[Rfam]
A member of the RNA family "Eukaryotic large subunit ribosomal RNA" from Kwoniella shandongensis, 492 nucleotides of a longer RNA. A search with the family's covariance model found it, with a score of 3394 bits. Lineage of the source: Eukaryota > Basidiomycota > Agaricomycotina > Tremellomycetes > Kwoniella.
RNA sequence: CCUGCCGAAGUUUCCCUCAGGAUAGCAGAAACUCGCAUCAGUUUUAUGAGGUAAAGCGAAUGAUUAGAGGCCUUGGGGACGAAACGUCCUUAACCUAUUCUCAAACUUUAAAUGUGUAAGAAGCGCCUGUCACUUAAUUGGACGGGCGCAUGCGAAUGAGAGUUUCUAGUGGGCCAUUUUUGGUAAGCAGAACUGGCGAUGCGGGAUGAACCGAUCGUGAGGUUAAGGUGCCGGAAUACACGCUCAUCAGACACCACAAAAGGUGUUAGUUCAUCUAGACAGCAGGACGGUGGCCAUGGAAGUCGGAAUCCGCUAAGGAGUGUGUAACAACUCACCUGCCGAAUGAACUAGCCCUGAAAAUGGAUGGCGCUCAAGCGUGUUACCCAUACCUCACCGUCGGCGUUGUAGUGACGCGCCGACGAGUAGGCAGGCGUGGGGGUCGGUGAAGAAGCCUAGGCAGUGAUGUCGGGUGGAACGGCCCCUAGUGCAGAU
Numbered sequence: 001c002c003u004g005c006c007g008a009a010g011u012u013u014c015c016c017u018c019a020g021g022a023u024a025g026c027a028g029a030a031a032c033u034c035g036c037a038u039c040a041g042u043u044u045u046a047u048g049a050g051g052u053a054a055a056g057c058g059a060a061u062g063a064u065u066a067g068a069g070g071c072c073u074u075g076g077g078g079a080c081g082a083a084a085c086g087u088c089c090u091u092a093a094c095c096u097a098u099u100c101u102c103a104a105a106c107u108u109u110a111a112a113u114g115u116g117u118a119a120g121a122a123g124c125g126c127c128u129g130u131c132a133c134u135u136a137a138u139u140g141g142a143c144g145g146g147c148g149c150a151u152g153c154g155a156a157u158g159a160g161a162g163u164u165u166c167u168a169g170u171g172g173g174c175c176a177u178u179u180u181u182g183g184u185a186a187g188c189a190g191a192a193c194u195g196g197c198g199a200u201g202c203g204g205g206a207u208g209a210a211c212c213g214a215u216c217g218u219g220a221g222g223u224u225a226a227g228g229u230g231c232c233g234g235a236a237u238a239c240a241c242g243c244u245c246a247u248c249a250g251a252c253a254c255c256a257c258a259a260a261a262g263g264u265g266u267u268a269g270u271u272c273a274u275c276u277a278g279a280c281a282g283c284a285g286g287a288c289g290g291u292g293g294c295c296a297u298g299g300a301a302g303u304c305g306g307a308a309u310c311c312g313c314u315a316a317g318g319a320g321u322g323u324g325u326a327a328c329a330a331c332u333c334a335c336c337u338g339c340c341g342a343a344u345g346a347a348c349u350a351g352c353c354c355u356g357a358a359a360a361u362g363g364a365u366g367g368c369g370c371u372c373a374a375g376c377g378u379g380u381u382a383c384c385c386a387u388a389c390c391u392c393a394c395c396g397u398c399g400g401c402g403u404u405g406u407a408g409u410g411a412c413g414c415g416c417c418g419a420c421g422a423g424u425a426g427g428c429a430g431g432c433g434u435g436g437g438g439g440u441c442g443g444u445g446a447a448g449a450a451g452c453c454u455a456g457g458c459a460g461u462g463a464u465g466u467c468g469g470g471u472g473g474a475a476c477g478g479c480c481c482c483u484a485g486u487g488c489a490g491a492u
Base pairs, nucleotide, nucleotide: 001431002430003429004428005427006426011024013022014021015020027167028166029165030164031163032162033161042121043120044119045118046117047116048115054109055107056106061103062102063101066098068096069095070094073093074092075091076090077089078088080086123149124148125147126146127145128144129143130142131141173197174196175195176194178192179191180190181189182188202213203212204211217394218393219392220391221390223388227384228383229382236381238380241377242376243375261355262354263353265352266351267350268349269348270347271346272345273344274343282339283338284337285336286335288312289311290310294306295305313317318333322331323330395421396420397419398418399417400416401415402414403413432487434484435483436482437481438480439479440478441477443476444475451471452470457466458465459464